[Rfam]
Shown here is a 116-nucleotide RNA from a Patescibacteria group bacterium, a member of the family "c-di-GMP-I-GGC riboswitch aptamer".
The source organism's lineage runs through Bacteria and Bacteria candidate phyla.
RNA sequence: CACGAUAAGGGCAAACCCGGAGUGAUCCGGGGACGCAAAGGAAAGGGUCUCGCUAAGCCGUUUAAACGGUUUAAACUGUUUUAACGGUUUUCUGGAAGACAGCCUUACUGCCGAAG
Numbered sequence: 001c002a003c004g005a006u007a008a009g010g011g012c013a014a015a016c017c018c019g020g021a022g023u024g025a026u027c028c029g030g031g032g033a034c035g036c037a038a039a040g041g042a043a044a045g046g047g048u049c050u051c052g053c054u055a056a057g058c059c060g061u062u063u064a065a066a067c068g069g070u071u072u073a074a075a076c077u078g079u080u081u082u083a084a085c086g087g088u089u090u091u092c093u094g095g096a097a098g099a100c101a102g103c104c105u106u107a108c109u110g111c112c113g114a115a116g
Stems, first nucleotide, its partner, number of pairs: 001116001003113002011036002016031006034102001039109002042106001044105003047100003